[Rfam]
Rfam assigns this 158-nucleotide sequence from Ruminococcus sp. AF31-8BH to the family "Clostridiales-1 RNA". The base pairs follow the family's consensus structure, which is taken from published work. It is annotated as a small RNA. The match comes from Rfam's covariance-model search (56 bits).

RNA sequence: UGAGCCAUGCUUGCAUGAGCGAAUUUUUGGAUAUCGGAUAUUCUAGAGCCUUUUUCAAACAGGCUCUAGACCGUAUGAGUAAGUAGGGCGAUAGUCUGGAUUACGAAUGUGGUUGGCAGCUGUGGGAGCGCCCAUAGGCGCCAAGCAGCUGACUUUCA
Numbered sequence: 001u002g003a004g005c006c007a008u009g010c011u012u013g014c015a016u017g018a019g020c021g022a023a024u025u026u027u028u029g030g031a032u033a034u035c036g037g038a039u040a041u042u043c044u045a046g047a048g049c050c051u052u053u054u055u056c057a058a059a060c061a062g063g064c065u066c067u068a069g070a071c072c073g074u075a076u077g078a079g080u081a082a083g084u085a086g087g088g089c090g091a092u093a094g095u096c097u098g099g100a101u102u103a104c105g106a107a108u109g110u111g112g113u114u115g116g117c118a119g120c121u122g123u124g125g126g127a128g129c130g131c132c133c134a135u136a137g138g139c140g141c142c143a144a145g146c147a148g149c150u151g152a153c154u155u156u157c158a
Stems, first nucleotide, its partner, number of pairs: 001158004010063004016057004021052002025048006031041004069114008079104004086097004117151007128141004